[Rfam]
RNA sequence: AUUAACAAUCAACUCCGAGCCAAAGAGCCUACGUCCUGUGAAUCGGGAUAUGGUUCGCGGCCGAUAGGGUAAGACGGGAAACGGUCUUGCCUCCCGUGUUUGGAAAGGAGCGUAAAUGGAAAUGGAU
Number, nucleotide and partner (000 for none) at each position: 001a000002u000003u121004a000005a000006c118007a000008a000009u000010c000011a113012a000013c110014u109015c108016c107017g000018a000019g061020c060021c059022a000023a000024a000025g056026a055027g054028c053029c052030u000031a000032c000033g049034u048035c047036c046037u045038g044039u000040g000041a000042a000043u000044c038045g037046g036047g035048a034049u033050a000051u000052g029053g028054u027055u026056c025057g000058c000059g021060g020061c019062c000063g000064a000065u000066a000067g092068g091069g090070u089071a088072a087073g086074a085075c084076g000077g082078g000079a000080a000081a000082c077083g000084g075085u074086c073087u072088u071089g070090c069091c068092u067093c103094c102095c000096g000097u000098g000099u000100u000101u000102g094103g093104a000105a000106a000107g016108g015109a014110g013111c000112g000113u011114a000115a000116a000117u000118g006119g000120a000121a003122a000123u000124g000125g000126a000127u000
RNA: Molybdenum/Tungsten riboswitch aptamer (Moco RNA motif)
Organism: Caldithrix abyssi